This 47-nucleotide RNA sequence from Enterorhabdus sp. P55 belongs to the Rfam family "DUF3800-XI RNA". The family's consensus secondary structure is taken from published work. The organism belongs to Enterorhabdus, within Bacteria. The family's RNA type in Rfam is small RNA. Actinobacteria, Firmicutes, Proteobacteria, Spirochaetes (1 example).
RNA sequence: UGGACUGGUCGAAAGACCCGGGUCCACCAGCGGCGGGGGAAGUCCCC
Number, nucleotide and partner (000 for none) at each position: 001u026002g025003g024004a023005c022006u021007g018008g017009u016010c015011g000012a000013a000014a000015g010016a009017c008018c007019c000020g000021g006022g005023u004024c003025c002026a001027c000028c000029a000030g000031c000032g000033g000034c000035g000036g000037g000038g000039g000040a000041a000042g000043u000044c000045c000046c000047c000